[Rfam]
RNA sequence: GGAAGUAGGCCUUCCGAGGCCGCCUUACAGGAGGAGGCUUCAAACCACUCUAAGCUGCUGUGAUCAAAAGUCAUGGUAGUGAGCGUUAGAGAAAAGGUGUCUUACAAGGCAUCAGGU
Numbered sequence: 001g002g003a004a005g006u007a008g009g010c011c012u013u014c015c016g017a018g019g020c021c022g023c024c025u026u027a028c029a030g031g032a033g034g035a036g037g038c039u040u041c042a043a044a045c046c047a048c049u050c051u052a053a054g055c056u057g058c059u060g061u062g063a064u065c066a067a068a069a070g071u072c073a074u075g076g077u078a079g080u081g082a083g084c085g086u087u088a089g090a091g092a093a094a095a096g097g098u099g100u101c102u103u104a105c106a107a108g109g110c111a112u113c114a115g116g117u
Base pairs, nucleotide, nucleotide: 001015002014003013004012005011016041017040018039019038020037021036023034024033025032026031046116048091049090050089051088052087053086054080055079057077058076059075061073062072063071064070096113097112098111099110100109101108
RNA: Group II catalytic intron D1-D4-2
Organism: Candidatus Scalindua rubra